The family of this 169-nucleotide RNA from Rhizobium sp. BK376 is "FMN riboswitch aptamer (RFN element)". Lineage of the source: Bacteria > Pseudomonadota > Alphaproteobacteria > Rhizobiaceae > Rhizobium.

RNA sequence: GCUCGUUCUCAGGGCGGGGUGAAAUUCCCCACCGGCGGUAUCGGGCCUCAUGUUUUCGAACAGAAAGGCCCGGAGCCCGCGAGCGCCUUUUGCCCACAAGGGUGGAAGGGUCAGCAGAUCCGGUGAGAGGCCGGAGCCGACGGUAUAGUCCGGAUGGAAGAGAGCACGC
Number, nucleotide and partner (000 for none) at each position: 001g000002c000003u000004c000005g165006u164007u163008c162009u161010c160011a000012g000013g000014g000015c000016g000017g029018g028019g027020u000021g000022a000023a000024a000025u000026u000027c019028c018029c017030c000031a149032c148033c139034g138035g080036c079037g078038g077039u000040a000041u000042c000043g000044g000045g000046c000047c000048u000049c000050a000051u000052g000053u000054u000055u000056u000057c000058g000059a000060a000061c000062a000063g000064a000065a000066a000067g000068g000069c000070c000071c000072g000073g000074a000075g137076c136077c038078c037079g036080c035081g000082a000083g115084c114085g000086c000087c000088u000089u000090u000091u000092g000093c000094c000095c000096a000097c000098a000099a000100g000101g000102g000103u000104g000105g000106a000107a000108g000109g000110g000111u000112c000113a000114g084115c083116a000117g000118a000119u135120c134121c133122g132123g131124u000125g000126a000127g000128a000129g000130g000131c123132c122133g121134g120135a119136g076137c075138c034139g033140a000141c152142g151143g150144u000145a000146u000147a000148g032149u031150c143151c142152g141153g000154a000155u000156g000157g000158a000159a000160g010161a009162g008163a007164g006165c005166a000167c000168g000169c000